Rfam assigns this 78-nucleotide sequence to the family "RAGATH-18 RNA". It is annotated as a small RNA. The sequence is in the family's curated seed alignment.

RNA sequence: CUUGUGGACUGUUAUAACAAAUGGGAGUAGAUUUUAUAUGAUGAUAUAAAAACCAAACCAGACAGGAAGAAGCAAGAA
Numbered sequence: 001c002u003u004g005u006g007g008a009c010u011g012u013u014a015u016a017a018c019a020a021a022u023g024g025g026a027g028u029a030g031a032u033u034u035u036a037u038a039u040g041a042u043g044a045u046a047u048a049a050a051a052a053c054c055a056a057a058c059c060a061g062a063c064a065g066g067a068a069g070a071a072g073c074a075a076g077a078a
Stems, first nucleotide, its partner, number of pairs: 001076005009065005022060003030053001032051001035046002